This 177-nucleotide RNA sequence from Anaerobium acetethylicum belongs to the Rfam family "Lysine riboswitch aptamer".
For this family Rfam cites "Riboswitches Control Fundamental Biochemical Pathways in Bacillus subtilis and Other Bacteria" (Mandal et al., Cell, 2003).
The family's consensus secondary structure is taken from published work.
The source organism's lineage runs through Bacteria, Bacillati, Bacillota, Clostridia and Anaerobium.
RNA sequence: AGUUUUGAUAGAGGUUGCGCUUUUCAUCAGUAGCCUGUUGGAUGUAUUCUGGUACAGAAGAAGACAGGGGAAAGGGGACGGCGCCGAAGAGAUAUUCCGCAGAGAGGUUUAUUUCUGGGCAUAUGGUUAACAGCCAUGUGACUGUCAUCUUUUUUAAGAUGGAGAGCUAUCUAAAGA
Numbered sequence: 001a002g003u004u005u006u007g008a009u010a011g012a013g014g015u016u017g018c019g020c021u022u023u024u025c026a027u028c029a030g031u032a033g034c035c036u037g038u039u040g041g042a043u044g045u046a047u048u049c050u051g052g053u054a055c056a057g058a059a060g061a062a063g064a065c066a067g068g069g070g071a072a073a074g075g076g077g078a079c080g081g082c083g084c085c086g087a088a089g090a091g092a093u094a095u096u097c098c099g100c101a102g103a104g105a106g107g108u109u110u111a112u113u114u115c116u117g118g119g120c121a122u123a124u125g126g127u128u129a130a131c132a133g134c135c136a137u138g139u140g141a142c143u144g145u146c147a148u149c150u151u152u153u154u155u156a157a158g159a160u161g162g163a164g165a166g167c168u169a170u171c172u173a174a175a176g177a
Base pairs, nucleotide, nucleotide: 007171008170009169010168011167017084018083019082020081021080023078024077025076034068035067036066037065038064039063088116089115090114091113092112093111094110097107098106117143118142120140121139122138123137124136125135126134127133145162146161147160148159149158150157151156